[Rfam]
RNA sequence: GACAGGAUACAGGACUGGCGGAUUAGUGGAAGCAACCACGUGGACUGUAUCCGAAGAAAAGCCGACCGCCUGGGCAAAAAUU
Numbered sequence: 001g002a003c004a005g006g007a008u009a010c011a012g013g014a015c016u017g018g019c020g021g022a023u024u025a026g027u028g029g030a031a032g033c034a035a036c037c038a039c040g041u042g043g044a045c046u047g048u049a050u051c052c053g054a055a056g057a058a059a060a061g062c063c064g065a066c067c068g069c070c071u072g073g074g075c076a077a078a079a080a081u082u
Stems, first nucleotide, its partner, number of pairs: 005052008015042001017070005026039004061075003
Dot-bracket structure: ....((((((((..(.[[[[[....((((......))))..)..))))))))........(((..]]]]]..))).......
Shown here is an 82-nucleotide RNA from Thermosinus carboxydivorans, a member of the family "ZMP/ZTP riboswitch aptamer (pfl RNA motif)". The base pairs follow the family's consensus structure, which is taken from published work. The sequence is in the family's curated seed alignment.